Rfam assigns this 75-nucleotide sequence from Gouania willdenowi to the family "Small nucleolar RNA SNORD83". The literature on the family includes a 2000 paper in Nucleic Acids Res by Jady and Kiss, "Characterisation of the U83 and U84 small nucleolar RNAs: two novel 2'-O-ribose methylation guide RNAs that lack complementarities to ribosomal RNAs". The organism belongs to Gouania, within Eukaryota.
Nucleotides: 075
Base pairs, nucleotide, nucleotide: 001074002073003072004071028037029036030035
Number, partner (000 for none) and nucleotide at each position: 001074g002073c003072c004071a005000c006000a007000u008000g009000a010000u011000g012000a013000c014000g015000c016000c017000a018000g019000u020000g021000u022000g023000c024000a025000g026000c027000a028037g029036c030035c031000c032000u033000c034000g035030g036029g037028c038000u039000c040000u041000g042000a043000u044000g045000a046000c047000a048000c049000c050000u051000c052000a053000c054000c055000u056000a057000u058000c059000a060000c061000c062000c063000u064000u065000g066000u067000c068000u069000g070000a071004u072003g073002g074001c075000u